[Rfam]
RNA: azaaromatic riboswitch aptamer (yjdF RNA)
Nucleotides: 114
Stems, first nucleotide, its partner, number of pairs: 005105007022041006042071005081091003
Number, partner (000 for none) and nucleotide at each position: 001000a002000a003000a004000u005105a006104u007103a008102a009101a010100g011099a012000u013000a014000a015000a016000a017000a018000c019000a020000c021000a022041g023040g024039u025038c026037g027036g028000u029000u030000g031000g032000u033000a034000g035000u036027c037026c038025g039024g040023c041022c042071g043070g044069g045068a046067a047000c048000g049000a050000u051000a052000u053000a054000u055000c056000g057000a058000c059000a060000g061000a062000u063000a064000u065000a066000a067046u068045u069044c070043c071042u072000c073000a074000g075000u076000a077000a078000c079000c080000u081091g082090c083089c084000u085000c086000c087000u088000u089083g090082g091081u092000u093000g094000u095000c096000c097000g098000u099011u100010c101009u102008u103007u104006g105005u106000u107000c108000a109000u110000a111000u112000u113000g114000c